[Rfam]
RNA sequence: UUCAGGAUGUGUGCCGUGGUUCAUGUAGUGAAAAUAUUCUCAUCACCGGGUGCACAUUCGGUCA
Numbered sequence: 001u002u003c004a005g006g007a008u009g010u011g012u013g014c015c016g017u018g019g020u021u022c023a024u025g026u027a028g029u030g031a032a033a034a035u036a037u038u039c040u041c042a043u044c045a046c047c048g049g050g051u052g053c054a055c056a057u058u059c060g061g062u063c064a
Stems, first nucleotide, its partner, number of pairs: 003061001005059011017048003021045001024042002027040002
RNA: mir-36_2 microRNA precursor family
Organism: Litomosoides sigmodontis